Rfam assigns this 144-nucleotide sequence from Sciurus carolinensis to the family "small Cajal body-specific RNA 17". Its family is annotated with RNA processing, nucleolus and Cajal body in the Gene Ontology. Rfam classes the family as a small Cajal body RNA. The base pairs follow the family's consensus structure, which is taken from published work. The literature on the family includes a 2004 paper in Curr Biol by Tycowski et al., "Guide RNAs with 5' Caps and Novel Box C/D snoRNA-like Domains for Modification of snRNAs in Metazoa". About the family: scaRNAs are a specific class of small nuclear RNAs which localise to the Cajal bodies and guide the modification of RNA polymerase II transcribed spliceosomal RNAs U1, U2, U4, U5 and U12. The complete human U12-22/U4-8 scaRNA is composed of two tandem C/D box domains (termed U12-22 and U4-8).
[Rfam]
RNA sequence: CUCCUGGGUCCCCGAUGCGGCCCUGGGCUGAGCCCUCAGUAUUUUCCUUAUAUGAUCAGGCCCCAUCGUGGGCGGCGCAGCUUACCUGGAGCCUGAGAGGAUUAUGAAAACGUGGCAGGCGAAGUGGGGCCAGGGGACCCGGCG
Numbered sequence: 001c002u003c004c005u006g007g008g009u010c011c012c013c014g015a016u017g018c019g020g021c022c023c024u025g026g027g028c029u030g031a032g033c034c035c036u037c038a039g040u041a042u043u044u045u046c047c048u049u050a051u052a053u054g055a056u057c058a059g060g061c062c063c064c065a066u067c068g069u070g071g072g073c074g075g076c077g078c079a080g081c082u083u084a085c086c087u088g089g090a091g092c093c094u095g096a097g098a099g100g101a102u103u104a105u106g107a108a109a110a111c112g113u114g115g116c117a118g119g120c121g122a123a124g125u126g127g128g129g130c131c132a133g134g135g136g137a138c139c140c141g142g143c144g
Stems, first nucleotide, its partner, number of pairs: 001144001003142001005141009020130005056096006063089002068085006